[Rfam]
RNA sequence: GCCGGGUUGGGUGGCGCCAACUUGUCACGGAUACGCUUCUGUCCGGGUAGUAAGGUGUGAGGGCUGUGGCAUGCGUGGUGGUGUCACUAUCCCCAGGAUGUGGAUGGCGCGUCCAUCUCAAACCAGGAGUCGACAUUGGGACAUUGUCGUAAGGGACUGUACCGAGGUCACUAAGGAAGGGUGUACCGCCCCAGGCUGGUUAACAGAGCAGGGAAAAACCCUCGCUCUUGGUAGUGGGAGGAUCUCGUGCCAGAAUUCUGAUGUGCCGCUACUACGCUGUAAGCCACAGUUCGAUCACCUUGCGU
Numbered sequence: 001g002c003c004g005g006g007u008u009g010g011g012u013g014g015c016g017c018c019a020a021c022u023u024g025u026c027a028c029g030g031a032u033a034c035g036c037u038u039c040u041g042u043c044c045g046g047g048u049a050g051u052a053a054g055g056u057g058u059g060a061g062g063g064c065u066g067u068g069g070c071a072u073g074c075g076u077g078g079u080g081g082u083g084u085c086a087c088u089a090u091c092c093c094c095a096g097g098a099u100g101u102g103g104a105u106g107g108c109g110c111g112u113c114c115a116u117c118u119c120a121a122a123c124c125a126g127g128a129g130u131c132g133a134c135a136u137u138g139g140g141a142c143a144u145u146g147u148c149g150u151a152a153g154g155g156a157c158u159g160u161a162c163c164g165a166g167g168u169c170a171c172u173a174a175g176g177a178a179g180g181g182u183g184u185a186c187c188g189c190c191c192c193a194g195g196c197u198g199g200u201u202a203a204c205a206g207a208g209c210a211g212g213g214a215a216a217a218a219c220c221c222u223c224g225c226u227c228u229u230g231g232u233a234g235u236g237g238g239a240g241g242a243u244c245u246c247g248u249g250c251c252a253g254a255a256u257u258c259u260g261a262u263g264u265g266c267c268g269c270u271a272c273u274a275c276g277c278u279g280u281a282a283g284c285c286a287c288a289g290u291u292c293g294a295u296c297a298c299c300u301u302g303c304g305u
Stems, first nucleotide, its partner, number of pairs: 001048003004023007028045005050303008061292006067283001073277002076274008088263004095259005101253001105252007113241002116239005122232009132169003136165004141160003145156001147154002171175001178222005189213003196206003
Rfam assigns this 305-nucleotide RNA from Phytophthora sojae to the family "Metazoan signal recognition particle RNA". About the family: The signal recognition particle (SRP) is a universally conserved ribonucleoprotein. It is involved in the co-translational targeting of proteins to membranes. The eukaryotic SRP consists of a 300-nucleotide 7S RNA and six proteins: SRPs 72, 68, 54, 19, 14, and 9. Archaeal SRP consists of a 7S RNA and homologues of the eukaryotic SRP19 and SRP54 proteins. On this family, see Rosenblad et al., Nucleic Acids Res 2003: "SRPDB: Signal Recognition Particle Database". It scores 146 bits against the family's covariance model. It is annotated as a non-coding RNA gene. The family is grouped with related families in Rfam's "SRP clan". NCBI's taxonomy places the organism under Eukaryota, Stramenopiles, Peronosporomycetes, Peronosporales, Phytophthora.